[Rfam]
Notes: A member of the RNA family "Actinobacteria sRNA Ms_IGR-5" from Actinophytocola oryzae, 242 nucleotides long. NCBI's taxonomy places the organism under Bacteria, Bacillati, Actinomycetes, Pseudonocardiales, Actinophytocola. Pairs were carried over by alignment from the consensus structure. It is annotated as a small RNA.

RNA sequence: ACACGAGAGAGGAGGUGGUCCAACGGUGUAUUCCCAUAGGACGCGUGAGGUGGCUGUCCGCUAGGACCACCCAUUCGGACAUUGGUGCCGGCUGCGCAACACGGCUGACAUCGGCUCUGCCGAUGCCGUAGACGCGCGGUGUGGUCGGCGAAUACCAGGCAGUCACCCAGCCCCCGGUGCCCUCAGGGACCUAGUCCGCCCCUGAGCCUGUUACGGCAGGAGAAGCCCGGGGGCUGCUUUAU
Numbered sequence: 001a002c003a004c005g006a007g008a009g010a011g012g013a014g015g016u017g018g019u020c021c022a023a024c025g026g027u028g029u030a031u032u033c034c035c036a037u038a039g040g041a042c043g044c045g046u047g048a049g050g051u052g053g054c055u056g057u058c059c060g061c062u063a064g065g066a067c068c069a070c071c072c073a074u075u076c077g078g079a080c081a082u083u084g085g086u087g088c089c090g091g092c093u094g095c096g097c098a099a100c101a102c103g104g105c106u107g108a109c110a111u112c113g114g115c116u117c118u119g120c121c122g123a124u125g126c127c128g129u130a131g132a133c134g135c136g137c138g139g140u141g142u143g144g145u146c147g148g149c150g151a152a153u154a155c156c157a158g159g160c161a162g163u164c165a166c167c168c169a170g171c172c173c174c175c176g177g178u179g180c181c182c183u184c185a186g187g188g189a190c191c192u193a194g195u196c197c198g199c200c201c202c203u204g205a206g207c208c209u210g211u212u213a214c215g216g217c218a219g220g221a222g223a224a225g226c227c228c229g230g231g232g233g234c235u236g237c238u239u240u241a242u
Stems, first nucleotide, its partner, number of pairs: 014058006059150004064146002067144004072139001168236010179226002183205006